[Rfam]
RNA sequence: CCACCGUCAGACCACACCGAGGUGUGCCACUCAGCGGAGAGUGCGGUCUGCGCAGCCCCAGGAGGACUGGGU
Numbered sequence: 001c002c003a004c005c006g007u008c009a010g011a012c013c014a015c016a017c018c019g020a021g022g023u024g025u026g027c028c029a030c031u032c033a034g035c036g037g038a039g040a041g042u043g044c045g046g047u048c049u050g051c052g053c054a055g056c057c058c059c060a061g062g063a064g065g066a067c068u069g070g071g072u
Stems, first nucleotide, its partner, number of pairs: 006044001008050005013026004028043004057071005
Description
This 72-nucleotide RNA sequence from Orthoflavivirus nilense belongs to the Rfam family "Flavivirus 3'UTR stem loop IV". About the family: Flavivirus 3' stem-loop IV (Flavivirus SLIV) is a conserved RNA that confers resistance to Xrn1 exonuclease. NCBI's taxonomy places the organism under Viruses, Kitrinoviricota, Flasuviricetes, Flaviviridae, Orthoflavivirus nilense. It is one of the family's seed sequences. Pairs were carried over by alignment from the consensus structure, which is taken from published work.